RNA sequence: GCCUCUGAGGAUGAUCAGAAAAAUAACUUUCGUUCUUCCGAGUUUUUCAUGCGGAAAAUUAUUUGAGACCUGAACUGAAGAGGC
Number, nucleotide and partner (000 for none) at each position: 001g000002c000003c082004u081005c080006u079007g000008a000009g000010g000011a000012u000013g000014a000015u000016c000017a000018g000019a000020a000021a000022a000023a000024u000025a000026a000027c000028u000029u000030u000031c000032g000033u000034u000035c000036u000037u000038c000039c000040g000041a000042g000043u000044u000045u000046u000047u000048c000049a000050u000051g000052c000053g000054g000055a000056a000057a000058a000059u000060u000061a000062u000063u000064u000065g000066a000067g000068a000069c000070c000071u000072g000073a000074a000075c000076u000077g000078a000079a006080g005081a004082g003083g000084c000